[Rfam]
RNA sequence: GCGGUGUGCUCAGAGCAGAGGGCUUGAAGAAUGGCUCCUCUGUUUAUAACACACCCAACAGGAAUCUGGGGUCAUUGUGACAAAGGGCACAAAAUUUGUGGCCUGUGUGCAUGUGCCCUGCAUGU
Numbered sequence: 001g002c003g004g005u006g007u008g009c010u011c012a013g014a015g016c017a018g019a020g021g022g023c024u025u026g027a028a029g030a031a032u033g034g035c036u037c038c039u040c041u042g043u044u045u046a047u048a049a050c051a052c053a054c055c056c057a058a059c060a061g062g063a064a065u066c067u068g069g070g071g072u073c074a075u076u077g078u079g080a081c082a083a084a085g086g087g088c089a090c091a092a093a094a095u096u097u098g099u100g101g102c103c104u105g106u107g108u109g110c111a112u113g114u115g116c117c118c119u120g121c122a123u124g125u
Stems, first nucleotide, its partner, number of pairs: 003055006013045009022035003069118004076111003081107002084104003088100005